[Rfam]
RNA sequence: UGAAAAUGGAACCUAACCAUUUAAAAAAACAGGGGCGGAAUCUGAAAAGCCAAAAGAGUAAGAAACUA
Numbered sequence: 001u002g003a004a005a006a007u008g009g010a011a012c013c014u015a016a017c018c019a020u021u022u023a024a025a026a027a028a029a030c031a032g033g034g035g036c037g038g039a040a041u042c043u044g045a046a047a048a049g050c051c052a053a054a055a056g057a058g059u060a061a062g063a064a065a066c067u068a
Base pairs, nucleotide, nucleotide: 006020007019008018009017034051035050036049041062
About this RNA
The family of this 68-nucleotide sequence from Flavobacterium beibuense is "DUF805 RNA". A search with the family's covariance model found it, with a score of 52 bits. Taxonomically the source falls in Flavobacterium beibuense (Bacteria, Flavobacteriales, Flavobacteriaceae, Flavobacterium). It is annotated as a cis-regulatory element.